[Rfam]
RNA sequence: CAAGCAUAAUGAUGAUUAAAAUAUUAUUCCGAUUAUUCAUAUGAAAGGAAUACCAACCUCCUACUCAUUCUGA
Numbered sequence: 001c002a003a004g005c006a007u008a009a010u011g012a013u014g015a016u017u018a019a020a021a022u023a024u025u026a027u028u029c030c031g032a033u034u035a036u037u038c039a040u041a042u043g044a045a046a047g048g049a050a051u052a053c054c055a056a057c058c059u060c061c062u063a064c065u066c067a068u069u070c071u072g073a
Stems, first nucleotide, its partner, number of pairs: 006068002009065001027049002
Rfam assigns this 73-nucleotide RNA from Capsicum baccatum to the family "Small nucleolar RNA Z105". Lineage of the source: Eukaryota > Streptophyta > Gunneridae > Solanaceae > Capsicum. Rfam links the family to the GO terms nucleolus and RNA processing. On this family, see Chen et al., Nucleic Acids Res 2003: "The high diversity of snoRNAs in plants: identification and comparative study of 120 snoRNA genes from Oryza sativa". The family has 11 seed sequences and 621 matches in Rfam 15.1. By type it is a C/D-box small nucleolar RNA.